A member of the RNA family "Mammalian CPEB3 ribozyme" from Alligator mississippiensis, 73 nucleotides long.
Nucleotides: 073
Base pairs, nucleotide, nucleotide: 011041012039013038014037017073019071020070021069022068023067024036025035026034045062046061048059049058050057051056
Number, partner (000 for none) and nucleotide at each position: 001000a002000c003000a004000a005000g006000u007000u008000u009000c010000a011041g012039g013038c014037c015000a016000u017073a018000a019071c020070a021069g022068a023067a024036g025035u026034g027000c028000u029000c030000a031000u032000g033000g034026c035025a036024u037014g038013g039012c040000a041011c042000c043000a044000u045062c046061a047000g048059a049058u050057u051056c052000c053000a054000a055000u056051g057050a058049a059048u060000a061046u062045g063000a064000g065000a066000a067023u068022u069021c070020u071019g072000c073017u
Source information
It scores 36 bits against the family's covariance model.